[Rfam]
RNA: Plastid-rps12 3UTR RNA
Organism: Protea cynaroides
RNA sequence: GGUUUCCAUUGGUGCAAAUCCAAUCACUUUCAUUUGAGAUGAGAAGCAAUUCCCCAUUGGUAGCAAAUGGUUAUCCAUUAAGCGGAGGUUGGAGCAU
Numbered sequence: 001g002g003u004u005u006c007c008a009u010u011g012g013u014g015c016a017a018a019u020c021c022a023a024u025c026a027c028u029u030u031c032a033u034u035u036g037a038g039a040u041g042a043g044a045a046g047c048a049a050u051u052c053c054c055c056a057u058u059g060g061u062a063g064c065a066a067a068u069g070g071u072u073a074u075c076c077a078u079u080a081a082g083c084g085g086a087g088g089u090u091g092g093a094g095c096a097u
Base pairs, nucleotide, nucleotide: 009023010022011021012020052087054085055084056078057077059075060074061073062072063071064070